Nucleotides: 131
Stems, first nucleotide, its partner, number of pairs: 014093003018090004025082004102130004109120003
Number, partner (000 for none) and nucleotide at each position: 001000g002000a003000a004000g005000a006000g007000c008000g009000a010000u011000g012000a013000u014093g015092u016091g017000g018090g019089a020088g021087g022000u023000u024000g025082c026081g027080a028079c029000a030000c031000a032000c033000c034000c035000g036000g037000c038000a039000g040000c041000a042000u043000u044000g045000c046000c047000a048000c049000g050000a051000g052000a053000u054000c055000c056000a057000u058000g059000c060000c061000a062000u063000g064000g065000a066000a067000u068000c069000u070000c071000g072000u073000c074000a075000g076000g077000u078000a079028g080027u081026c082025g083000g084000u085000a086000g087021u088020u089019u090018c091016c092015a093014c094000g095000g096000a097000g098000u099000u100000a101000g102130u103129c104128u105127c106000a107000u108000a109120u110119u111118c112000c113000a114000a115000u116000a117000u118111g119110g120109a121000c122000g123000a124000a125000g126000g127105g128104a129103g130102a131000a

The family of this 131-nucleotide RNA sequence from Weissella halotolerans is "S10-Clostridia ribosomal protein leader". By type it is a cis-regulatory leader. NCBI's taxonomy places the organism under Bacteria, Bacilli, Lactobacillaceae, Weissella, Weissella halotolerans.